A member of the RNA family "SAM riboswitch aptamer (S box leader)" from Aquibacillus koreensis, 109 nucleotides long. The family's consensus secondary structure is taken from published work. NCBI's taxonomy places the organism under Bacteria, Bacillati, Bacillota, Bacilli, Aquibacillus.
[Rfam]
RNA sequence: CUCUUAUCAAGAGCGGCAGAGGGAAUAGGCCCUAUGAAGCCCAGCAACCAUCAAGACCAACUUGAAAAGGUGCUAAAUCCUACAGGUGAAAAAGCCUGAAAGAUAAGUU
Numbered sequence: 001c002u003c004u005u006a007u008c009a010a011g012a013g014c015g016g017c018a019g020a021g022g023g024a025a026u027a028g029g030c031c032c033u034a035u036g037a038a039g040c041c042c043a044g045c046a047a048c049c050a051u052c053a054a055g056a057c058c059a060a061c062u063u064g065a066a067a068a069g070g071u072g073c074u075a076a077a078u079c080c081u082a083c084a085g086g087u088g089a090a091a092a093a094g095c096c097u098g099a100a101a102g103a104u105a106a107g108u109u
Base pairs, nucleotide, nucleotide: 003107004106005105006104007103008102013042015041016040017039021032022031023030026082027081028080029079043074044073045072046071048070049069051065052064053063078101083098084097085096086095087094